The family of this 94-nucleotide RNA sequence from Rhynchophorus ferrugineus is "mir-2788 microRNA precursor family". A search with the family's covariance model found it, with a score of 69 bits. The family's consensus secondary structure was predicted with RNAalifold. Rfam 15.1 lists 89 matches to the family in 88 species. Its family is annotated with miRNA-mediated post-transcriptional gene silencing and RISC complex in the Gene Ontology.
Nucleotides: 094
Stems, first nucleotide, its partner, number of pairs: 008090005014085003021078009032067002035065005041060003
Number, partner (000 for none) and nucleotide at each position: 001000u002000a003000g004000g005000a006000g007000a008090g009089u010088u011087g012086a013000g014085a015084c016083a017000a018000a019000u020000u021078u022077g023076g024075g025074g026073u027072u028071u029070c030000u031000u032067a033066g034000c035065g036064g037063c038062a039061u040000u041060u042059g043058c044000c045000u046000g047000u048000a049000u050000a051000a052000a053000u054000a055000a056000u057000u058043g059042c060041a061039a062038u063037g064036c065035c066033c067032u068000u069000g070029g071028a072027a073026a074025u075024c076023c077022c078021a079000a080000a081000a082000a083016u084015g085014u086012u087011c088010a089009a090008u091000a092000u093000a094000g